Shown here is a 187-nucleotide RNA from Peromyscus maniculatus, a member of the family "Small nucleolar RNA SNORD97".
RNA sequence: UUGCCCGAUGAUUAUAAAAAGACGCGAAAGAGGACUUAAGCUGGAUGCUUUCCCUUUUUUUCCUCUUCUCUUCUCUACUCUUUCUUUAACUCUUCUUUAUCUACUUUUCCUCCUUUUUCUCUUGCUUCUUUUUCUCUCUUUGGAUGUCCAGCGUCCUAUGAGCGAAGAUUAUGAGAUAUGAGGGCAA
Numbered sequence: 001u002u003g004c005c006c007g008a009u010g011a012u013u014a015u016a017a018a019a020a021g022a023c024g025c026g027a028a029a030g031a032g033g034a035c036u037u038a039a040g041c042u043g044g045a046u047g048c049u050u051u052c053c054c055u056u057u058u059u060u061u062c063c064u065c066u067u068c069u070c071u072u073c074u075c076u077a078c079u080c081u082u083u084c085u086u087u088a089a090c091u092c093u094u095c096u097u098u099a100u101c102u103a104c105u106u107u108u109c110c111u112c113c114u115u116u117u118u119c120u121c122u123u124g125c126u127u128c129u130u131u132u133u134c135u136c137u138c139u140u141u142g143g144a145u146g147u148c149c150a151g152c153g154u155c156c157u158a159u160g161a162g163c164g165a166a167g168a169u170u171a172u173g174a175g176a177u178a179u180g181a182g183g184g185c186a187a
Base pairs, nucleotide, nucleotide: 001187002186003185004184005183006182031050032049033048036045037044
Lineage of the source: Eukaryota > Opisthokonta > Amniota > Rodentia > Peromyscus maniculatus.